[Rfam]
RNA sequence: AUUACCUGACUCGCAAAACCCAACCUCAAGUUCGGUUGGUGUAUUUGUCCGGGUCGGGGCGCGUAAGCCGUCCGACCUCAUCCCGCUUGCUCGCCGAGUAGGGAGUGCUAGCGCACGGCUGAGGGAACAACAAAGGCCUCUGGCCCGGUGCCCCGUGGCUGUUUACUCUUCCUUUGUCUAGCGCAUCC
Numbered sequence: 001a002u003u004a005c006c007u008g009a010c011u012c013g014c015a016a017a018a019c020c021c022a023a024c025c026u027c028a029a030g031u032u033c034g035g036u037u038g039g040u041g042u043a044u045u046u047g048u049c050c051g052g053g054u055c056g057g058g059g060c061g062c063g064u065a066a067g068c069c070g071u072c073c074g075a076c077c078u079c080a081u082c083c084c085g086c087u088u089g090c091u092c093g094c095c096g097a098g099u100a101g102g103g104a105g106u107g108c109u110a111g112c113g114c115a116c117g118g119c120u121g122a123g124g125g126a127a128c129a130a131c132a133a134a135g136g137c138c139u140c141u142g143g144c145c146c147g148g149u150g151c152c153c154c155g156u157g158g159c160u161g162u163u164u165a166c167u168c169u170u171c172c173u174u175u176g177u178c179u180a181g182c183g184c185a186u187c188c
Stems, first nucleotide, its partner, number of pairs: 005052002008049003013044001020039006053076002057073005062067001085188001087185001088183004093178001095176001096174002098171001102169006109121004135160004140155001142153002
Notes: Rfam assigns this 188-nucleotide RNA from Halapricum desulfuricans to the family "Sense overlapping transcript RNA 2652 (sot)". For this family Rfam cites "Sense overlapping transcripts in IS1341-type transposase genes are functional non-coding RNAs in archaea" (Gomes-Filho et al., RNA Biol, 2015). It is annotated as a small RNA. Rfam's curators write: It is associated with IS1341-type transposase (tnpB) genes, at the 3'-end in H. salinarum NRC-1.